Record summary: Rfam assigns this 75-nucleotide RNA from Variovorax sp. Sphag1AA to the family "Fluoride riboswitch aptamer (crcB RNA motif)".
RNA sequence: CGCCGCUACGGAGAUGGCAUUCCUCCCCGAACCGCCCGCAGCGACAGUUGCGGAGCUGAUGAUGCCUACGGAGUC
Numbered sequence: 001c002g003c004c005g006c007u008a009c010g011g012a013g014a015u016g017g018c019a020u021u022c023c024u025c026c027c028c029g030a031a032c033c034g035c036c037c038g039c040a041g042c043g044a045c046a047g048u049u050g051c052g053g054a055g056c057u058g059a060u061g062a063u064g065c066c067u068a069c070g071g072a073g074u075c
Base pairs, nucleotide, nucleotide: 010026011025012024013023016066017065018064019063020062021061034056035055037053
Lineage of the source: Bacteria > Pseudomonadota > Burkholderiales > Comamonadaceae > Variovorax. Pairs were carried over by alignment from the consensus structure, which is taken from published work. A search with the family's covariance model found it, with a score of 46 bits.